[Rfam]
RNA sequence: GGUCACGAGUGACAGUGCGGCGGGUUUUGCCCGCCUUCAGCCCCGGCUUACUGUCCGGCAACCCUCCUACCGCGGUGGGGUGCCCCGGGUGACGACCCGGCCCCGCACGUCGCGUGCGGGAGCAAGCGCGAAUC
Numbered sequence: 001g002g003u004c005a006c007g008a009g010u011g012a013c014a015g016u017g018c019g020g021c022g023g024g025u026u027u028u029g030c031c032c033g034c035c036u037u038c039a040g041c042c043c044c045g046g047c048u049u050a051c052u053g054u055c056c057g058g059c060a061a062c063c064c065u066c067c068u069a070c071c072g073c074g075g076u077g078g079g080g081u082g083c084c085c086c087g088g089g090u091g092a093c094g095a096c097c098c099g100g101c102c103c104c105g106c107a108c109g110u111c112g113c114g115u116g117c118g119g120g121a122g123c124a125a126g127c128g129c130g131a132a133u134c
Base pairs, nucleotide, nucleotide: 001097002096003095004094009056011055012054013053014052015051016050020047057084058083059082062080063079064078066075067074100123101122102120103119104118105117106116107115108114109113